A member of the RNA family "small nucleolar RNA snoR137" from Malus baccata, 153 nucleotides long.
RNA sequence: GUUGCUUCAUAUGGUGAACGCCCUGUAAAUUUCGAUUGGAUUGGGGAUGUUCUAGUUUCCGAAGCAUAGAUUAAAAUUACGAAUUCCCAGUAUUUAACAGCACCGUGUCUGCUUCUUGCUUUUACACUGUGUUACCUGUCUCCUGGAACAUUU
Numbered sequence: 001g002u003u004g005c006u007u008c009a010u011a012u013g014g015u016g017a018a019c020g021c022c023c024u025g026u027a028a029a030u031u032u033c034g035a036u037u038g039g040a041u042u043g044g045g046g047a048u049g050u051u052c053u054a055g056u057u058u059c060c061g062a063a064g065c066a067u068a069g070a071u072u073a074a075a076a077u078u079a080c081g082a083a084u085u086c087c088c089a090g091u092a093u094u095u096a097a098c099a100g101c102a103c104c105g106u107g108u109c110u111g112c113u114u115c116u117u118g119c120u121u122u123u124a125c126a127c128u129g130u131g132u133u134a135c136c137u138g139u140c141u142c143c144u145g146g147a148a149c150a151u152u153u
Stems, first nucleotide, its partner, number of pairs: 003066006016052004021046004087146004092141001099133003103129001105127003
A reference for the family is Chen and Wu (2009), "Mining small RNA sequencing data: a new approach to identify small nucleolar RNAs in Arabidopsis", Nucleic Acids Res. A search with the family's covariance model found it, with a score of 99 bits. Its family is annotated with nucleolus and RNA processing in the Gene Ontology. Lineage of the source: Eukaryota > Viridiplantae > Rosaceae > Maleae > Malus.